[Rfam]
RNA sequence: CUUGAUGGAGCCGAGCCAGAGCGGUUCCGCGCCCUCGCGGCCCUGGCCGUACGUGGCAAGGAGCGCCUGCGCCUC
Numbered sequence: 001c002u003u004g005a006u007g008g009a010g011c012c013g014a015g016c017c018a019g020a021g022c023g024g025u026u027c028c029g030c031g032c033c034c035u036c037g038c039g040g041c042c043c044u045g046g047c048c049g050u051a052c053g054u055g056g057c058a059a060g061g062a063g064c065g066c067c068u069g070c071g072c073c074u075c
Stems, first nucleotide, its partner, number of pairs: 014026004033069001038065002043060002047056003
RNA: ASpks TB sRNA
Organism: Streptomyces alboniger